[Rfam]
Shown here is a 136-nucleotide RNA from Ornithorhynchus anatinus, a member of the family "Small nucleolar RNA SNORA1".
From the family's description: ACA1 is a member of the H/ACA class of snoRNA that guide the sites of modification of uridines to pseudouridines.

RNA sequence: UGCCCCAUUCCAAAUAUUCAUGGACACAGUUCAUGUUUGUGUCACAUGGAACAAUGUGGCUACAGUGAAAGCACAGGUUUUGCUUCCAUCACAGUAAAAAUAAGUUACUCUGGUGACAAUGAGACCUGUAACAGGA
Number, nucleotide and partner (000 for none) at each position: 001u000002g060003c059004c058005c000006c056007a055008u054009u000010c000011c000012a000013a000014a000015u000016a000017u000018u000019c000020a000021u046022g045023g043024a042025c041026a040027c039028a000029g000030u000031u000032c000033a000034u000035g000036u000037u000038u000039g027040u026041g025042u024043c023044a000045c022046a021047u000048g000049g000050a000051a000052c000053a000054a008055u007056g006057u000058g004059g003060c002061u000062a000063c000064a000065g000066u000067g000068a000069a000070a000071g000072c000073a129074c128075a127076g126077g125078u000079u000080u000081u000082g000083c000084u000085u000086c000087c115088a114089u113090c112091a111092c000093a000094g000095u000096a000097a000098a000099a000100a000101u000102a000103a000104g000105u000106u000107a000108c000109u000110c000111u091112g090113g089114u088115g087116a000117c000118a000119a000120u000121g000122a000123g000124a000125c077126c076127u075128g074129u073130a000131a000132c000133a000134g000135g000136a000
Annotation: It is one of the family's seed sequences. The family's RNA type in Rfam is H/ACA-box small nucleolar RNA.